[Rfam]
RNA sequence: GCCGAGCUCAGCAGCGUGGGCUUGUGAUCUAAGCGGAGGCACUGGAUGGUUUGAACGAUUGAUCUGAUUCCUUGGACAGGAUCUCAUCCCGCUCUUAGUCGGCCCGCCCAUUCCAAGUUGGGCACUUGAUCUAAGUGGCUUAUGCGAAGGCCUUGGGUUGACUGGAUCUGAGAGGAGGGGAAUGCGUGUGAGGCUGGGUUUUCACAGAGCAGCGAAUACCUCCCGCUCUCAACGGUGGAAGGAUAACGGGCCUGUGCGGCUGAGAUCCAUUAUGUGUUGGGGGAUCAUAAAGGCCAAACAAUU
Numbered sequence: 001g002c003c004g005a006g007c008u009c010a011g012c013a014g015c016g017u018g019g020g021c022u023u024g025u026g027a028u029c030u031a032a033g034c035g036g037a038g039g040c041a042c043u044g045g046a047u048g049g050u051u052u053g054a055a056c057g058a059u060u061g062a063u064c065u066g067a068u069u070c071c072u073u074g075g076a077c078a079g080g081a082u083c084u085c086a087u088c089c090c091g092c093u094c095u096u097a098g099u100c101g102g103c104c105c106g107c108c109c110a111u112u113c114c115a116a117g118u119u120g121g122g123c124a125c126u127u128g129a130u131c132u133a134a135g136u137g138g139c140u141u142a143u144g145c146g147a148a149g150g151c152c153u154u155g156g157g158u159u160g161a162c163u164g165g166a167u168c169u170g171a172g173a174g175g176a177g178g179g180g181a182a183u184g185c186g187u188g189u190g191a192g193g194c195u196g197g198g199u200u201u202u203c204a205c206a207g208a209g210c211a212g213c214g215a216a217u218a219c220c221u222c223c224c225g226c227u228c229u230c231a232a233c234g235g236u237g238g239a240a241g242g243a244u245a246a247c248g249g250g251c252c253u254g255u256g257c258g259g260c261u262g263a264g265a266u267c268c269a270u271u272a273u274g275u276g277u278u279g280g281g282g283g284a285u286c287a288u289a290a291a292g293g294c295c296a297a298a299c300a301a302u303u
Stems, first nucleotide, its partner, number of pairs: 001040003004023007028037003045303003049299005056292001059290003065287003069284005075278004079268008089259003093256001099254001101252006108242002111240005117233006124227001126225001128168006136160007144151002174223005183216001185214003194207003
The family of this 303-nucleotide RNA sequence from Carex littledalei is "Plant signal recognition particle RNA". A search with the family's covariance model found it, with a score of 161 bits. It is annotated as a non-coding RNA gene. Clan: SRP clan.